A member of the RNA family "SAM riboswitch aptamer (S box leader)" from Fictibacillus enclensis, 108 nucleotides long. The match comes from Rfam's covariance-model search (88 bits).
[Rfam]
RNA sequence: CUCUUAUCCAGAGCGGCGGAGGGAAAGGCCCUAUGAAGCCCGGCAACCUACAGGCAUAUUGCCUGAAAAGGUGCUACUACCUGCAGGAGAAAUCCUGGAUGAUAAGAG
Numbered sequence: 001c002u003c004u005u006a007u008c009c010a011g012a013g014c015g016g017c018g019g020a021g022g023g024a025a026a027g028g029c030c031c032u033a034u035g036a037a038g039c040c041c042g043g044c045a046a047c048c049u050a051c052a053g054g055c056a057u058a059u060u061g062c063c064u065g066a067a068a069a070g071g072u073g074c075u076a077c078u079a080c081c082u083g084c085a086g087g088a089g090a091a092a093u094c095c096u097g098g099a100u101g102a103u104a105a106g107a108g
Base pairs, nucleotide, nucleotide: 001108002107003106004105005104006103007102008101013041015040016039017038021031022030023029026082027081028080042075043074044073045072047071048070049067051065052064053063054062079100084097085096086095087094088093
Rfam describes the family as follows. The SAM riboswitch is found upstream of a number of genes which code for proteins involved in methionine or cysteine biosynthesis in Gram-positive bacteria. NCBI's taxonomy places the organism under Bacteria, Bacillati, Bacilli, Fictibacillaceae, Fictibacillus.